[Rfam]
RNA sequence: UCACUUCACAUUAAGCCAGCGAUCUCUAUAUGGGUCCUCGCCGGUUUCGGCCGGCUAUGGCGAUAAACUGCAGUGUGCAAUAGGCACAGCGGACCCGGGGGCAGUACCCGGCGGCUCCACCAAAAUCCUCGGGAAACCGGGGGCUCUGACGGGGCCGAACCAGGAUCGACGUGUGUUGAAAAGCACUGUUUUUGCCCGGGCUGAGUAACCCGCAUAAGGCUCAAAACACACAAGUGCCAACGAUAACGAAGCACUUGCUCUCGCUGCGUAACCUGACGGCCUAACGGCCUGAUCUUACAAAGCUAGAGCACGGUUCGGACCGAACCGGGUAACAGAAUCGGAAACC
Numbered sequence: 001u002c003a004c005u006u007c008a009c010a011u012u013a014a015g016c017c018a019g020c021g022a023u024c025u026c027u028a029u030a031u032g033g034g035u036c037c038u039c040g041c042c043g044g045u046u047u048c049g050g051c052c053g054g055c056u057a058u059g060g061c062g063a064u065a066a067a068c069u070g071c072a073g074u075g076u077g078c079a080a081u082a083g084g085c086a087c088a089g090c091g092g093a094c095c096c097g098g099g100g101g102c103a104g105u106a107c108c109c110g111g112c113g114g115c116u117c118c119a120c121c122a123a124a125a126u127c128c129u130c131g132g133g134a135a136a137c138c139g140g141g142g143g144c145u146c147u148g149a150c151g152g153g154g155c156c157g158a159a160c161c162a163g164g165a166u167c168g169a170c171g172u173g174u175g176u177u178g179a180a181a182a183g184c185a186c187u188g189u190u191u192u193u194g195c196c197c198g199g200g201c202u203g204a205g206u207a208a209c210c211c212g213c214a215u216a217a218g219g220c221u222c223a224a225a226a227c228a229c230a231c232a233a234g235u236g237c238c239a240a241c242g243a244u245a246a247c248g249a250a251g252c253a254c255u256u257g258c259u260c261u262c263g264c265u266g267c268g269u270a271a272c273c274u275g276a277c278g279g280c281c282u283a284a285c286g287g288c289c290u291g292a293u294c295u296u297a298c299a300a301a302g303c304u305a306g307a308g309c310a311c312g313g314u315u316c317g318g319a320c321c322g323a324a325c326c327g328g329g330u331a332a333c334a335g336a337a338u339c340g341g342a343a344a345c346c
Stems, first nucleotide, its partner, number of pairs: 040055005059196005070189007085175003089172003095111005112157007197212004202223003311327004320340001322338001
Shown here is a 346-nucleotide RNA from Altererythrobacter sp. Root672, a member of the family "Alphaproteobacteria transfer-messenger RNA". The base pairs follow the family's consensus structure, which is taken from published work. Rfam's curators write: Bacterial tmRNA, also known as 10Sa RNA or SsrA, is named for its dual tRNA and mRNA-like properties. Its role is to liberate the mRNA from a stalled ribosome. To accomplish this part of the tmRNA is used as a reading frame that ends in a translation stop signal. The source organism's lineage runs through Bacteria, Alphaproteobacteria, Sphingomonadales, Erythrobacteraceae and Altererythrobacter.